[Rfam]
RNA sequence: UAAUUAUUUAUGACAAAUCUUUAUCAAACUGUGAAAGAUUUUCAUGUGACUAGUUAAAAACGUUCAACAUAUGCUAGCCCGGCUACAUCAAUAAUUAAGGCACGUGGAGAGGAAACGGUGAUUAAUAAGAAUAAAA
Numbered sequence: 001u002a003a004u005u006a007u008u009u010a011u012g013a014c015a016a017a018u019c020u021u022u023a024u025c026a027a028a029c030u031g032u033g034a035a036a037g038a039u040u041u042u043c044a045u046g047u048g049a050c051u052a053g054u055u056a057a058a059a060a061c062g063u064u065c066a067a068c069a070u071a072u073g074c075u076a077g078c079c080c081g082g083c084u085a086c087a088u089c090a091a092u093a094a095u096u097a098a099g100g101c102a103c104g105u106g107g108a109g110a111g112g113a114a115a116c117g118g119u120g121a122u123u124a125a126u127a128a129g130a131a132u133a134a135a136a
Stems, first nucleotide, its partner, number of pairs: 004134004008129002011125001013123001017119002022115001024113001029111002
RNA: MIR480 microRNA precursor family